The family of this 103-nucleotide sequence from Pseudomonas putida is "Pseudomonas rnk leader". Taxonomically the source falls in Pseudomonas putida (Bacteria, Pseudomonadota, Pseudomonadaceae, Pseudomonas). Rfam's curators put it in the seed alignment. Pairs were carried over by alignment from the consensus structure, which is taken from published work.
RNA sequence: CGCAGGGGCUUGAGUAUUUGCCCGGCUGUGGUAGUGUCGGGUUCUGCGUCGGUGACGCCAAAGCCUUCUCAAACCCCGCCCUUGGGCGGGGUUUUGCUUUAUU
Numbered sequence: 001c002g003c004a005g006g007g008g009c010u011u012g013a014g015u016a017u018u019u020g021c022c023c024g025g026c027u028g029u030g031g032u033a034g035u036g037u038c039g040g041g042u043u044c045u046g047c048g049u050c051g052g053u054g055a056c057g058c059c060a061a062a063g064c065c066u067u068c069u070c071a072a073a074c075c076c077c078g079c080c081c082u083u084g085g086g087c088g089g090g091g092u093u094u095u096g097c098u099u100u101a102u103u
Stems, first nucleotide, its partner, number of pairs: 002053002005050002018034005071094010